[Rfam]
RNA sequence: GCACCAACACUACUAUGUGCAGAAACUCUGUUCUUAAGUUGCUUGUGAAUACGAGCCACUUGAAACUGAAAGAAACAAAGAAACAAUAUCAGUAUAAAAUUUUAUCAAAUUAUACUACAAAAAAUGAAAUUUCUUUGUUUAUUUCAAUUUCUAGUGGGUCGUAUUCACAUGCAACUCAAGACUAGAGUAUCUACAACAUGGUCGACUUGGUG
Numbered sequence: 001g002c003a004c005c006a007a008c009a010c011u012a013c014u015a016u017g018u019g020c021a022g023a024a025a026c027u028c029u030g031u032u033c034u035u036a037a038g039u040u041g042c043u044u045g046u047g048a049a050u051a052c053g054a055g056c057c058a059c060u061u062g063a064a065a066c067u068g069a070a071a072g073a074a075a076c077a078a079a080g081a082a083a084c085a086a087u088a089u090c091a092g093u094a095u096a097a098a099a100u101u102u103u104a105u106c107a108a109a110u111u112a113u114a115c116u117a118c119a120a121a122a123a124a125u126g127a128a129a130u131u132u133c134u135u136u137g138u139u140u141a142u143u144u145c146a147a148u149u150u151c152u153a154g155u156g157g158g159u160c161g162u163a164u165u166c167a168c169a170u171g172c173a174a175c176u177c178a179a180g181a182c183u184a185g186a187g188u189a190u191c192u193a194c195a196a197c198a199u200g201g202u203c204g205a206c207u208u209g210g211u212g
Base pairs, nucleotide, nucleotide: 002212003211004210005209006208007207010204012202013201014200015199016198017197018195019194021192022191023190025188026187027186028185029184030183032181033180034179035178037176038175039174040173041172042171044169045168046167047166048165049164050163051162052161053160054159056157057156058155059154060153062151063150064149065148067146068145069144070143071142073140074139075138076137077136078135079134080133081132082131099130100129101128102127103126104125105124
The record is a 212-nucleotide RNA from Arabidopsis thaliana, which matches "MIR841 microRNA precursor family" in Rfam. Pairs were carried over by alignment from the consensus structure, which was predicted with RNAalifold.